[Rfam]
RNA sequence: AUAUUAUCAAAGGUGCUUAUAGUAGAAGCGUUCACGUCGCAAUCCCUGCCGACUCUAAUAACAGGCUGCAAAUUUUGCU
Numbered sequence: 001a002u003a004u005u006a007u008c009a010a011a012g013g014u015g016c017u018u019a020u021a022g023u024a025g026a027a028g029c030g031u032u033c034a035c036g037u038c039g040c041a042a043u044c045c046c047u048g049c050c051g052a053c054u055c056u057a058a059u060a061a062c063a064g065g066c067u068g069c070a071a072a073u074u075u076u077g078c079u
Stems, first nucleotide, its partner, number of pairs: 013046001015044001017042002021079007028040003050068002053065002

This 79-nucleotide sequence from Diabrotica virgifera belongs to the Rfam family "Mammalian CPEB3 ribozyme". It scores 40 bits against the family's covariance model. Lineage of the source: Eukaryota > Metazoa > Protostomia > Insecta > Diabrotica virgifera.